5' ureB small RNA: a 296-nucleotide RNA from Allobranchiibius huperziae. The literature on the family includes a 2013 paper in J Bacteriol by Wen et al., "Helicobacter pylori 5'ureB-sRNA, a cis-encoded antisense small RNA, negatively regulates ureAB expression by transcription termination".
[Rfam]
RNA sequence: GCCUCGUGCACCUGACUGGUCGACAGGAAGUGCACGUGCAUGUCGAUGCCGCCGGCAGUGAGGAUGCGGCCUUCGCCCGAGAUGACGUCGGUGCCCGGCCCGAUCUCCAGCUCCGGCGUGAUGCCGUCGGUGAUGUCGGGGUUGCCGGCGCGGCCGAUCCCGACGAUGCGCCCGUCGCGGAUGCCGACGUCGGCGCGUACGACACCCCAGUGGUCGAGCACGAUCGCACCGGUGAUCACGGUGUCGAGGGCGCCCUGGGCGCUGGUGCGGGUGCCCUGCGCCAUCGAUUCGCGGAU
Number, nucleotide and partner (000 for none) at each position: 001g296002c000003c294004u000005c293006g292007u291008g290009c000010a289011c000012c000013u165014g164015a000016c162017u000018g160019g077020u000021c075022g074023a073024c000025a000026g000027g000028a000029a000030g000031u054032g053033c000034a000035c051036g050037u000038g049039c048040a047041u046042g000043u000044c000045g000046a041047u040048g039049c038050c036051g035052c000053c032054g031055g000056c000057a000058g070059u069060g000061a000062g000063g000064a000065u000066g000067c000068g000069g059070c058071c000072u000073u023074c022075g021076c000077c019078c000079g154080a000081g000082a000083u150084g149085a000086c147087g000088u000089c000090g000091g145092u144093g142094c141095c140096c139097g137098g136099c135100c000101c132102g131103a000104u130105c129106u000107c000108c126109a000110g124111c123112u000113c000114c000115g000116g000117c000118g000119u000120g000121a000122u000123g111124c110125c000126g108127u000128c000129g105130g104131u102132g101133a000134u000135g099136u098137c097138g000139g096140g095141g094142u093143u000144g092145c091146c000147g086148g000149c084150g083151c000152g000153g000154c079155c000156g000157a000158u000159c000160c018161c000162g016163a000164c014165g013166a000167u000168g000169c000170g000171c280172c000173c278174g277175u000176c000177g275178c000179g000180g272181a000182u270183g000184c267185c000186g000187a000188c000189g000190u000191c000192g000193g227194c226195g225196c000197g000198u222199a000200c000201g000202a000203c000204a000205c000206c000207c216208c000209a000210g000211u000212g000213g000214u000215c000216g207217a000218g000219c000220a000221c000222g198223a000224u000225c195226g194227c193228a000229c000230c264231g263232g262233u000234g000235a000236u000237c257238a256239c000240g000241g255242u000243g253244u000245c000246g000247a000248g000249g000250g000251c000252g000253c243254c000255c241256u238257g237258g000259g000260c000261g000262c232263u231264g230265g000266u000267g184268c000269g000270g182271g000272u180273g000274c000275c177276c000277u174278g173279c000280g171281c000282c000283a000284u000285c000286g000287a000288u000289u010290c008291g007292c006293g005294g003295a000296u001
The family has 13 seed sequences and 4,812 matches in Rfam 15.1.